[Rfam]
RNA sequence: GUAACAUCAAGAGUGGUGGAGGGACAGGCCCUAGGAAACCCGGCAACCAGCGCAGCAGUGCAUGGUGCUAAUUCCUGCAAGAGUAUCUUGAGAGAUGUAGU
Numbered sequence: 001g002u003a004a005c006a007u008c009a010a011g012a013g014u015g016g017u018g019g020a021g022g023g024a025c026a027g028g029c030c031c032u033a034g035g036a037a038a039c040c041c042g043g044c045a046a047c048c049a050g051c052g053c054a055g056c057a058g059u060g061c062a063u064g065g066u067g068c069u070a071a072u073u074c075c076u077g078c079a080a081g082a083g084u085a086u087c088u089u090g091a092g093a094g095a096u097g098u099a100g101u
Base pairs, nucleotide, nucleotide: 001101002100004098005097006096007095008094013041015040016039017038021031022030023029025077026076027075028074042069043068044067045066047065048064050061051060052059053058073093078090079089080088081087082086
RNA: SAM riboswitch aptamer (S box leader)